Notes
The family of this 319-nucleotide RNA sequence from Trachymyrmex cornetzi is "Arthropod 7SK RNA". Rfam 15.1 lists 229 matches to the family in 137 species. The family is grouped with related families in Rfam's "7SK clan". The match comes from Rfam's covariance-model search (87 bits).
[Rfam]
RNA sequence: GGAAGCGUGUGUGGGAUGGCACAACUAAGCAUCGAUCGUUACAUAGAGAUACUAUCUUAUAGAUAGAUCACUAUGUGGCAGAUCUGCUCAGUUAGUGUUGUCAUAUCUUGAGCUUUCAGAUCAUCCGAUAAGCUUCUUGAUUUUAGACUCCCGAUUGCGCAUGCAACUUCGUUUUAAAAUCACGUAUUUGCACGCCUGCACGGUCGAGUCUUCCUCGUAGUACCGCGAUUUCCAAAUUUGGGGGGUAAUCGAUUUGGUCAGAGGUAAUUUGUCGCUUCCACAUGCAGGCACUGCUGAUGGCGGUACGCCAUCUUUUUUG
Numbered sequence: 001g002g003a004a005g006c007g008u009g010u011g012u013g014g015g016a017u018g019g020c021a022c023a024a025c026u027a028a029g030c031a032u033c034g035a036u037c038g039u040u041a042c043a044u045a046g047a048g049a050u051a052c053u054a055u056c057u058u059a060u061a062g063a064u065a066g067a068u069c070a071c072u073a074u075g076u077g078g079c080a081g082a083u084c085u086g087c088u089c090a091g092u093u094a095g096u097g098u099u100g101u102c103a104u105a106u107c108u109u110g111a112g113c114u115u116u117c118a119g120a121u122c123a124u125c126c127g128a129u130a131a132g133c134u135u136c137u138u139g140a141u142u143u144u145a146g147a148c149u150c151c152c153g154a155u156u157g158c159g160c161a162u163g164c165a166a167c168u169u170c171g172u173u174u175u176a177a178a179a180u181c182a183c184g185u186a187u188u189u190g191c192a193c194g195c196c197u198g199c200a201c202g203g204u205c206g207a208g209u210c211u212u213c214c215u216c217g218u219a220g221u222a223c224c225g226c227g228a229u230u231u232c233c234a235a236a237u238u239u240g241g242g243g244g245g246u247a248a249u250c251g252a253u254u255u256g257g258u259c260a261g262a263g264g265u266a267a268u269u270u271g272u273c274g275c276u277u278c279c280a281c282a283u284g285c286a287g288g289c290a291c292u293g294c295u296g297a298u299g300g301c302g303g304u305a306c307g308c309c310a311u312c313u314u315u316u317u318u319g
Stems, first nucleotide, its partner, number of pairs: 001279007013104001015102003025091002029087003034084004038079004044073003287309003290304005